[Rfam]
RNA sequence: AGGUAGUGCUAGGGGUGCCUCUUUGAGGCUGAGAGAUAAAAUAUUUUAUUAACCCUUGUACCUGAUCUGGAUAAUACCAGCGUAGGAAAGCGAUAAUACAUGUAA
Numbered sequence: 001a002g003g004u005a006g007u008g009c010u011a012g013g014g015g016u017g018c019c020u021c022u023u024u025g026a027g028g029c030u031g032a033g034a035g036a037u038a039a040a041a042u043a044u045u046u047u048a049u050u051a052a053c054c055c056u057u058g059u060a061c062c063u064g065a066u067c068u069g070g071a072u073a074a075u076a077c078c079a080g081c082g083u084a085g086g087a088a089a090g091c092g093a094u095a096a097u098a099c100a101u102g103u104a105a
Stems, first nucleotide, its partner, number of pairs: 007092004011056004017029005036049005061086004067080004
Dot-bracket structure: ......((((((((..(((((...)))))......(((((....)))))...))))....((((..((((......))))..))))..)))).............